[Rfam]
RNA sequence: UUAGCGAUUGGGGGGACAGGUGAGAUUGUCCCUCGCAAUGAGGAAGAACGGCGAGGCAAAUCGACAAAGGCCGAGAUAUCGUUUCAUUCGCCAUUUUCUAUGGAUUGGCGAUAUGAUUGUUGCUCGUCUAUAU
Numbered sequence: 001u002u003a004g005c006g007a008u009u010g011g012g013g014g015g016a017c018a019g020g021u022g023a024g025a026u027u028g029u030c031c032c033u034c035g036c037a038a039u040g041a042g043g044a045a046g047a048a049c050g051g052c053g054a055g056g057c058a059a060a061u062c063g064a065c066a067a068a069g070g071c072c073g074a075g076a077u078a079u080c081g082u083u084u085c086a087u088u089c090g091c092c093a094u095u096u097u098c099u100a101u102g103g104a105u106u107g108g109c110g111a112u113a114u115g116a117u118u119g120u121u122g123c124u125c126g127u128c129u130a131u132a133u
Stems, first nucleotide, its partner, number of pairs: 007039004013032006069129002072126004078117004088111006095104002
Small nucleolar RNA snoR111: a 133-nucleotide RNA from Punica granatum. Its family is annotated with RNA processing and nucleolus in the Gene Ontology. It scores 86 bits against the family's covariance model. The family's RNA type in Rfam is H/ACA-box small nucleolar RNA.